[Rfam]
RNA sequence: GCGCCUGAGGGUGCCCGCCGGUCCGCGAGUUUCGCGCACUGGCGCGAUUUCG
Numbered sequence: 001g002c003g004c005c006u007g008a009g010g011g012u013g014c015c016c017g018c019c020g021g022u023c024c025g026c027g028a029g030u031u032u033c034g035c036g037c038a039c040u041g042g043c044g045c046g047a048u049u050u051c052g
Stems, first nucleotide, its partner, number of pairs: 016044007025035004

Source information:
A member of the RNA family "ffh sRNA" from Skermanella stibiiresistens, 52 nucleotides long. The source organism's lineage runs through Bacteria, Pseudomonadati, Pseudomonadota, Rhodospirillales and Skermanella stibiiresistens. Pairs were carried over by alignment from the consensus structure, which is taken from published work. Rfam classes the family as a small RNA.